[Rfam]
RNA sequence: GCCUUUAAUUCGCUGAAUCAUAUGAGCGGGGGAACCAGAAUCGACAGAAUUGCUCUGUCUUGGGGUGAAUCUUACCAUGAUAAGACGGGAUACUCUCAAUCCCGAAUCCGACAGCUAACUCCGUAAGCGGCUUCAACACGAAUGA
Numbered sequence: 001g002c003c004u005u006u007a008a009u010u011c012g013c014u015g016a017a018u019c020a021u022a023u024g025a026g027c028g029g030g031g032g033a034a035c036c037a038g039a040a041u042c043g044a045c046a047g048a049a050u051u052g053c054u055c056u057g058u059c060u061u062g063g064g065g066u067g068a069a070u071c072u073u074a075c076c077a078u079g080a081u082a083a084g085a086c087g088g089g090a091u092a093c094u095c096u097c098a099a100u101c102c103c104g105a106a107u108c109c110g111a112c113a114g115c116u117a118a119c120u121c122c123g124u125a126a127g128c129g130g131c132u133u134c135a136a137c138a139c140g141a142a143u144g145a
Stems, first nucleotide, its partner, number of pairs: 011129004018025002026124006036062002063109003071084004087103004
Dot-bracket structure: ..........((((...((....))((((((....((.......................))(((.....((((......))))..((((.........))))...))).........)))))).))))................
This 145-nucleotide sequence from Planococcus lenghuensis belongs to the Rfam family "c-di-AMP riboswitch aptamer (ydaO/yuaA leader)". Rfam describes the family as follows. This family represents a conserved RNA structure found upstream of the ydaO and yuaA genes in Bacillus subtilis and related genes in other bacteria. The ydaO/yuaA element is thought to act as a genetic 'off' switch for the ydaO and yuaA genes in its native state. It is believed that the element may be triggered during osmotic shock leading to activation of ydaO, a predicted amino acid transporter gene, and members of the yuaA-yubG operon which code for KtrA and KtrB K+ transporters. Taxonomically the source falls in Planococcus (Bacteria, Bacilli, Caryophanales, Caryophanaceae). It scores 90 bits against the family's covariance model. The pairing is the family consensus, mapped onto this sequence.